[Rfam]
RNA sequence: CCCCACACUGACGUGUGGGGCCGUCUUUUUGACUGUAACAAGGGGUCUGCCCGUG
Numbered sequence: 001c002c003c004c005a006c007a008c009u010g011a012c013g014u015g016u017g018g019g020g021c022c023g024u025c026u027u028u029u030u031g032a033c034u035g036u037a038a039c040a041a042g043g044g045g046u047c048u049g050c051c052c053g054u055g
Stems, first nucleotide, its partner, number of pairs: 001020008
RNA: ClpQY promoter